[Rfam]
RNA sequence: ACUGCAAGUGAUGAUAAAAAGACAGGGACAUCAGCACUACUUUGUAGAAUGUUGACUUCGUCGUUUGGGAAUCUCUCUGAUGCAGU
Numbered sequence: 001a002c003u004g005c006a007a008g009u010g011a012u013g014a015u016a017a018a019a020a021g022a023c024a025g026g027g028a029c030a031u032c033a034g035c036a037c038u039a040c041u042u043u044g045u046a047g048a049a050u051g052u053u054g055a056c057u058u059c060g061u062c063g064u065u066u067g068g069g070a071a072u073c074u075c076u077c078u079g080a081u082g083c084a085g086u
Stems, first nucleotide, its partner, number of pairs: 002085005